[Rfam]
RNA sequence: GGUAAAUAUUGGCAAAUCUGGGGAAAUCCAGAGACGCAAAGCUAAAGGGGCUAAGGUUGUACAACUAUGCCAGCCAGUUGCCGAA
Numbered sequence: 001g002g003u004a005a006a007u008a009u010u011g012g013c014a015a016a017u018c019u020g021g022g023g024a025a026a027u028c029c030a031g032a033g034a035c036g037c038a039a040a041g042c043u044a045a046a047g048g049g050g051c052u053a054a055g056g057u058u059g060u061a062c063a064a065c066u067a068u069g070c071c072a073g074c075c076a077g078u079u080g081c082c083g084a085a
Base pairs, nucleotide, nucleotide: 012037013036017032018031019030020029021028022027040079041078042077043076047075048074049071050070051069056065057064058063
c-di-GMP-I riboswitch aptamer: an 85-nucleotide sequence from Romboutsia lituseburensis. The match comes from Rfam's covariance-model search (78 bits).